[Rfam]
RNA sequence: UAAAGCACUCGCGGGAGCCCGUACGCAGCGGGCUGAGAGGGAGGCUGGAGCGGCCUCCGACCGUACGAACCUGAUCCGGGUCAUGCCGGCGAAGGGAGGGGCUGGACGCCAUGC
Numbered sequence: 001u002a003a004a005g006c007a008c009u010c011g012c013g014g015g016a017g018c019c020c021g022u023a024c025g026c027a028g029c030g031g032g033c034u035g036a037g038a039g040g041g042a043g044g045c046u047g048g049a050g051c052g053g054c055c056u057c058c059g060a061c062c063g064u065a066c067g068a069a070c071c072u073g074a075u076c077c078g079g080g081u082c083a084u085g086c087c088g089g090c091g092a093a094g095g096g097a098g099g100g101g102c103u104g105g106a107c108g109c110c111a112u113g114c
Stems, first nucleotide, its partner, number of pairs: 008100003011064004017033005040058008070095003076089004
This 114-nucleotide sequence from Streptomyces sp. SID5785 belongs to the Rfam family "TPP riboswitch aptamer (THI element)". Rfam describes the family as follows. Vitamin B(1) in its active form thiamin pyrophosphate (TPP) is an essential coenzyme that is synthesised by coupling of pyrimidine and thiazole moieties in bacteria.